[Rfam]
RNA: antisense RNA of dnaA mRNA
Organism: Vibrio ziniensis
RNA sequence: UUUCGCAUUCGGCUUAUUAUCAACAAUAGCGUUACCCACAGCGUGUAAAAGGUGGGUUUUACCUAAACCUGUACCGCCAUA
Numbered sequence: 001u002u003u004c005g006c007a008u009u010c011g012g013c014u015u016a017u018u019a020u021c022a023a024c025a026a027u028a029g030c031g032u033u034a035c036c037c038a039c040a041g042c043g044u045g046u047a048a049a050a051g052g053u054g055g056g057u058u059u060u061a062c063c064u065a066a067a068c069c070u071g072u073a074c075c076g077c078c079a080u081a
Base pairs, nucleotide, nucleotide: 004043005042006041009038011036012035016032017031020029051078052077053076054075056074057073061072062071